[Rfam]
RNA: SL2 RNA
Organism: Strongylus vulgaris
RNA sequence: GGUUCAAACCCCCGUAUCUCAAGGUACUAAGGGCGUCUGACCUACCACUUGAGGUUGCGUCAAAACCCAAUUUUUGGACUGCCUUCUUGGGGUUUCCGGGAGGAAAGA
Numbered sequence: 001g002g003u004u005c006a007a008a009c010c011c012c013c014g015u016a017u018c019u020c021a022a023g024g025u026a027c028u029a030a031g032g033g034c035g036u037c038u039g040a041c042c043u044a045c046c047a048c049u050u051g052a053g054g055u056u057g058c059g060u061c062a063a064a065a066c067c068c069a070a071u072u073u074u075u076g077g078a079c080u081g082c083c084u085u086c087u088u089g090g091g092g093u094u095u096c097c098g099g100g101a102g103g104a105a106a107g108a
Base pairs, nucleotide, nucleotide: 007036009032010031014027018024038062039061040060041059042057044055045054046053084105085104086103087102088101091097092096